[Rfam]
RNA sequence: UGGCGCCCACAGGACCUGGAAACGAGGACUCCGGAAGAAGAAGGACCGCCAAAGGACCGUCGACCGGCUAACAAAGACAAAAGAAAUUAACUUUUUUUCGAUCAACCGCGGAAACCCGCCGCCGUCAGAAUCGACAGGUAUGCGCGUCGAAAUGGGACAAGGAAUUAAAUGUCACAUCAAUUGUAAGGACAAAUUAAACAGGCUUUAAAGAUACGAGGAGUAAAGGUUAAAGUAAUGAUUUUUAAAUUUUUUGAUUUGUUAAAAGAUACUUGCCUGC
Numbered sequence: 001u002g003g004c005g006c007c008c009a010c011a012g013g014a015c016c017u018g019g020a021a022a023c024g025a026g027g028a029c030u031c032c033g034g035a036a037g038a039a040g041a042a043g044g045a046c047c048g049c050c051a052a053a054g055g056a057c058c059g060u061c062g063a064c065c066g067g068c069u070a071a072c073a074a075a076g077a078c079a080a081a082a083g084a085a086a087u088u089a090a091c092u093u094u095u096u097u098u099c100g101a102u103c104a105a106c107c108g109c110g111g112a113a114a115c116c117c118g119c120c121g122c123c124g125u126c127a128g129a130a131u132c133g134a135c136a137g138g139u140a141u142g143c144g145c146g147u148c149g150a151a152a153u154g155g156g157a158c159a160a161g162g163a164a165u166u167a168a169a170u171g172u173c174a175c176a177u178c179a180a181u182u183g184u185a186a187g188g189a190c191a192a193a194u195u196a197a198a199c200a201g202g203c204u205u206u207a208a209a210g211a212u213a214c215g216a217g218g219a220g221u222a223a224a225g226g227u228u229a230a231a232g233u234a235a236u237g238a239u240u241u242u243u244a245a246a247u248u249u250u251u252u253g254a255u256u257u258g259u260u261a262a263a264a265g266a267u268a269c270u271u272g273c274c275u276g277c
Base pairs, nucleotide, nucleotide: 007027008026012023033047034046091138092137093136096134097133102130103128107124108122109121110120111119141159142158145156147155148154149153166207167206168205171203172202173201214253215252216251217250218249219248220247221246224241225240226239227238228237229236264275265274267272
Dot-bracket structure: ......((...(..........)..)).....((...........))...........................................(((..((....((...(((((.......)))).)...).)..)).)))..((..(.(((...)))).))......(((..(((...........................))).)))......((((((((..((((((......))))))....))))))))..........((.(....).))..
About this RNA
Rfam assigns this 277-nucleotide RNA from Cercocebus atys to the family "Mason-Pfizer monkey virus packaging signal". A reference for the family is Mustafa et al. (2004), "Mutational analysis of the predicted secondary RNA structure of the Mason-Pfizer monkey virus packaging signal", Virus Res. The family's RNA type in Rfam is cis-regulatory element. The organism belongs to Cercocebus, within Eukaryota. This family represents a group of sequences that are related to the Mason-Pfizer monkey virus (MPMV) packaging signal. The packaging signal is located in the 5' UTR and is required for specific RNA encapsidation.